Shown here is a 61-nucleotide sequence, a member of the family "GP20-b RNA". The base pairs follow the family's consensus structure, which is taken from published work.
Nucleotides: 061
Stems, first nucleotide, its partner, number of pairs: 001017004009028003037049003
Number, partner (000 for none) and nucleotide at each position: 001017u002016g003015a004014c005000c006000g007000g008000c009028c010027c011026g012000a013000c014004g015003u016002c017001g018000u019000a020000a021000a022000a023000c024000u025000a026011c027010g028009g029000g030000c031000g032000c033000c034000u035000a036000a037049g038048u039047g040000a041000u042000g043000c044000a045000a046000c047039c048038a049037c050000g051000u052000a053000a054000a055000a056000c057000g058000c059000g060000u061000a